[Rfam]
RNA sequence: AAUUCUGGUUUUUGUGUCUUAUGAUGAAGCUUCAUAGGGCAGAUUCUGAGCUGAGAAAUAAAAUUUCUCUCCACUGAUACUCUCUAUAUGCCAUCUGAAGACACGCAAUUGU
Numbered sequence: 001a002a003u004u005c006u007g008g009u010u011u012u013u014g015u016g017u018c019u020u021a022u023g024a025u026g027a028a029g030c031u032u033c034a035u036a037g038g039g040c041a042g043a044u045u046c047u048g049a050g051c052u053g054a055g056a057a058a059u060a061a062a063a064u065u066u067c068u069c070u071c072c073a074c075u076g077a078u079a080c081u082c083u084c085u086a087u088a089u090g091c092c093a094u095c096u097g098a099a100g101a102c103a104c105g106c107a108a109u110u111g112u
Base pairs, nucleotide, nucleotide: 013105014104015103016102017101018100019099029094033090034089035088037083038082039081042078045077046076048074050072053069054068055067056066057065
Shown here is a 112-nucleotide sequence from Larus smithsonianus, a member of the family "Small nucleolar RNA SNORD90". snoRNA HBII-295 belongs to the family of C/D snoRNAs. It is the human orthologue of the mouse MBII-295 and has no identified RNA target. Rfam links the family to the GO terms RNA processing and nucleolus. On this family, see Huttenhofer et al., EMBO J 2001: "RNomics: an experimental approach that identifies 201 candidates for novel, small, non-messenger RNAs in mouse".